[Rfam]
RNA: mir-544 microRNA precursor family
Nucleotides: 096
Base pairs, nucleotide, nucleotide: 003089004088010083011082015079016078017077018076019075020074021072022071023070025068026067027066028065029064031062032061033060
Number, partner (000 for none) and nucleotide at each position: 001000a002000u003089c004088a005000c006000c007000u008000a009000a010083g011082g012000a013000u014000c015079u016078u017077g018076u019075u020074a021072a022071a023070a024000u025068g026067c027066a028065g029064a030000u031062u032061c033060u034000g035000a036000u037000u038000c039000a040000a041000a042000g043000g044000u045000g046000c047000u048000g049000g050000g051000g052000u053000g054000g055000g056000u057000c058000u059000g060033a061032g062031a063000u064029u065028c066027u067026g068025c069000a070023u071022u072021u073000c074020u075019a076018a077017c078016a079015a080000c081000u082011c083010c084000c085000a086000g087000a088004u089003g090000a091000u092000a093000c094000u095000a096000c